[Rfam]
RNA sequence: UUUUGAUCAUAUGACUGGCGGAAAUGGAGUUUACCAUAGGGAGUAUGAUUGAUUAAAUUAUCGACCGCCUGGGUAAAUUAU
Number, nucleotide and partner (000 for none) at each position: 001u000002u000003u052004u051005g050006a049007u048008c047009a046010u045011a044012u043013g000014a000015c040016u039017g069018g068019c067020g066021g065022a000023a000024a037025u036026g035027g034028a000029g000030u000031u000032u000033a000034c027035c026036a025037u024038a000039g016040g015041g000042a000043g012044u011045a010046u009047g008048a007049u006050u005051g004052a003053u000054u000055a000056a000057a000058u076059u075060a074061u073062c072063g000064a000065c021066c020067g019068c018069c017070u000071g000072g062073g061074u060075a059076a058077a000078u000079u000080a000081u000

Shown here is an 81-nucleotide RNA from Clostridium oryzae, a member of the family "ZMP/ZTP riboswitch aptamer (pfl RNA motif)". Lineage of the source: Bacteria > Bacillati > Bacillota > Clostridiaceae > Clostridium.